[Rfam]
RNA sequence: CUUCGCCACGUCGAUUUGCUCGUUUUGCGAGAGCAGUUUGCCGAUGGAUUCACGAAUAGAAGGAUGCCAGCUCACGGCACGACUCACCGCGUCGUUGAGCGUCAGGCUACCGGGAGCGGCAGCGCUCAGCGGCAGAUCGGCAACCGCGCCGUCCAGCGAGGGAAGCAUCUGGCUAGUGGCCAGUCCUUCCGGCGUAAUAAUUUGCGGUUCAUCUUCGGCAUUCACCCGCAGGGUACAGAGCGUUAAUGCCAGCAGUAAGGCAACAGGCGCGACAUUUCUCAUAGAUUAUCCCUUACAAAAUACGGCAGCGACGACUGUUAUUGCCCCGGAUGUCAUCGCAUCCGGGGCUGUAGU
Numbered sequence: 001c002u003u004c005g006c007c008a009c010g011u012c013g014a015u016u017u018g019c020u021c022g023u024u025u026u027g028c029g030a031g032a033g034c035a036g037u038u039u040g041c042c043g044a045u046g047g048a049u050u051c052a053c054g055a056a057u058a059g060a061a062g063g064a065u066g067c068c069a070g071c072u073c074a075c076g077g078c079a080c081g082a083c084u085c086a087c088c089g090c091g092u093c094g095u096u097g098a099g100c101g102u103c104a105g106g107c108u109a110c111c112g113g114g115a116g117c118g119g120c121a122g123c124g125c126u127c128a129g130c131g132g133c134a135g136a137u138c139g140g141c142a143a144c145c146g147c148g149c150c151g152u153c154c155a156g157c158g159a160g161g162g163a164a165g166c167a168u169c170u171g172g173c174u175a176g177u178g179g180c181c182a183g184u185c186c187u188u189c190c191g192g193c194g195u196a197a198u199a200a201u202u203u204g205c206g207g208u209u210c211a212u213c214u215u216c217g218g219c220a221u222u223c224a225c226c227c228g229c230a231g232g233g234u235a236c237a238g239a240g241c242g243u244u245a246a247u248g249c250c251a252g253c254a255g256u257a258a259g260g261c262a263a264c265a266g267g268c269g270c271g272a273c274a275u276u277u278c279u280c281a282u283a284g285a286u287u288a289u290c291c292c293u294u295a296c297a298a299a300a301u302a303c304g305g306c307a308g309c310g311a312c313g314a315c316u317g318u319u320a321u322u323g324c325c326c327c328g329g330a331u332g333u334c335a336u337c338g339c340a341u342c343c344g345g346g347g348c349u350g351u352a353g354u
Stems, first nucleotide, its partner, number of pairs: 003272001005270002008195002011192003017035005036057005043051002059189007066133003070100003074096001076093003080089002102128001104126002106123003110119002139181003143177002146174001148173004152163003198235002201232003205228003211222001242268002247262004323348011